[Rfam]
RNA sequence: GCCGAGCCAUGUAACGUGGGCUUGUAACCCAAGUGGGGGCUUUGAAGUGGUUGAACAUUGACCUAGCUCAUCCAGUCGGGCCGUAGGUGGCUAAUUGCUGGCCUGCCCAUUCCAAGUGUGGAGUUGGGCUAUGUGGUUCGGGCUAAAGCUCGGGCCACGUGGUCCCUAAAUCGAAGGGCACCGCGCAAGGCUGGCUUCACAGAGCAACGAUAACCUUCAGCCCCUUACAGUGGAAGGAUAACGGGCUGGUUGCUUCCUUGGCCUACUUAAGCUUGAUGGGCUAGCUCUAAUUGAACAAUCAUUUUU
Number, nucleotide and partner (000 for none) at each position: 001g040002c039003c038004g023005a022006g021007c020008c019009a000010u000011g000012u000013a000014a000015c000016g000017u000018g000019g008020g007021c006022u005023u004024g000025u000026a000027a000028c037029c036030c035031a000032a000033g000034u000035g030036g029037g028038g003039g002040c001041u000042u000043u000044g305045a304046a303047g302048u301049g300050g299051u298052u297053g296054a000055a000056c293057a292058u290059u289060g288061a286062c000063c284064u283065a282066g281067c000068u279069c278070a277071u276072c275073c000074a273075g272076u271077c000078g264079g263080g262081c261082c260083g259084u000085a000086g000087g256088u000089g254090g253091c000092u000093a250094a000095u000096u000097g000098c249099u248100g247101g246102c245103c244104u243105g242106c000107c237108c236109a000110u235111u234112c233113c232114a231115a000116g228117u227118g226119u000120g224121g223122a000123g221124u220125u000126g165127g164128g163129c162130u161131a160132u159133g158134u157135g156136g155137u154138u153139c152140g151141g150142g149143c148144u000145a000146a000147a000148g143149c142150u141151c140152g139153g138154g137155c136156c135157a134158c133159g132160u131161g130162g129163u128164c127165c126166c000167u000168a000169a000170a000171u000172c000173g218174a217175a216176g215177g214178g000179c000180a000181c000182c000183g000184c209185g208186c000187a000188a000189g000190g000191c202192u201193g200194g000195c000196u000197u000198c000199a000200c193201a192202g191203a000204g000205c000206a000207a000208c185209g184210a000211u000212a000213a000214c177215c176216u175217u174218c173219a000220g124221c123222c000223c121224c120225u000226u118227a117228c116229a000230g000231u114232g113233g112234a111235a110236g108237g107238a000239u000240a000241a000242c105243g104244g103245g102246c101247u100248g099249g098250u093251u000252g000253c090254u089255u000256c087257c000258u000259u083260g082261g081262c080263c079264u078265a000266c000267u000268u000269a000270a000271g076272c075273u074274u000275g072276a071277u070278g069279g068280g000281c066282u065283a064284g063285c000286u061287c000288u060289a059290a058291u000292u057293g056294a000295a000296c053297a052298a051299u050300c049301a048302u047303u046304u045305u044306u000
RNA: Plant signal recognition particle RNA
Organism: Erythranthe guttata